This 355-nucleotide RNA sequence from Fusobacterium sp. CAG:815 belongs to the Rfam family "Bacterial RNase P class A". Taxonomically the source falls in Fusobacterium (Bacteria, Fusobacteriati, Fusobacteriia, Fusobacteriaceae).
RNA sequence: UAAAGUAGUCGGAUAAUCGCGCUUCGUAAUUAUUACAAGUGAGGAAAGUCCGUGCAUCUAAGAACAGACCGCCGGAGAAACUCCGGACGAUGUGAGUCGGUGGACAGUGCCACAGAAAUGAUGACUGCCGAUGGGUAAAUUUUUUUUAUCACAGGCGAUGGUGCAACGGUGAGUUAAGAGCUUCACCAGUGAUAUCGGAAGGUAUCAGCUAGGUAAACCCCGGUCGGAUGCAAGAUUGAAUCGAAGGCUAAGGUUGUUCGCCAUCUUCGGAAAAAUCGCUAGAGAUUAGGAGUAAUCCUAAUACCAGACAGAUGAUUAUCUAAAACAGAACACGGCUUAUGGGCUGCUUUAUCUU
Numbered sequence: 001u002a003a004a005g006u007a008g009u010c011g012g013a014u015a016a017u018c019g020c021g022c023u024u025c026g027u028a029a030u031u032a033u034u035a036c037a038a039g040u041g042a043g044g045a046a047a048g049u050c051c052g053u054g055c056a057u058c059u060a061a062g063a064a065c066a067g068a069c070c071g072c073c074g075g076a077g078a079a080a081c082u083c084c085g086g087a088c089g090a091u092g093u094g095a096g097u098c099g100g101u102g103g104a105c106a107g108u109g110c111c112a113c114a115g116a117a118a119u120g121a122u123g124a125c126u127g128c129c130g131a132u133g134g135g136u137a138a139a140u141u142u143u144u145u146u147u148a149u150c151a152c153a154g155g156c157g158a159u160g161g162u163g164c165a166a167c168g169g170u171g172a173g174u175u176a177a178g179a180g181c182u183u184c185a186c187c188a189g190u191g192a193u194a195u196c197g198g199a200a201g202g203u204a205u206c207a208g209c210u211a212g213g214u215a216a217a218c219c220c221c222g223g224u225c226g227g228a229u230g231c232a233a234g235a236u237u238g239a240a241u242c243g244a245a246g247g248c249u250a251a252g253g254u255u256g257u258u259c260g261c262c263a264u265c266u267u268c269g270g271a272a273a274a275a276u277c278g279c280u281a282g283a284g285a286u287u288a289g290g291a292g293u294a295a296u297c298c299u300a301a302u303a304c305c306a307g308a309c310a311g312a313u314g315a316u317u318a319u320c321u322a323a324a325a326c327a328g329a330a331c332a333c334g335g336c337u338u339a340u341g342g343g344c345u346g347c348u349u350u351a352u353c354u355u
Stems, first nucleotide, its partner, number of pairs: 001351010011340001012320007020041005028033001046338003050335005055230004062259004067225005072086005087101001088099004102220002107218002109214003125160001127156003132151003168187005173181001189209001190207007234277004243268005252262003285302007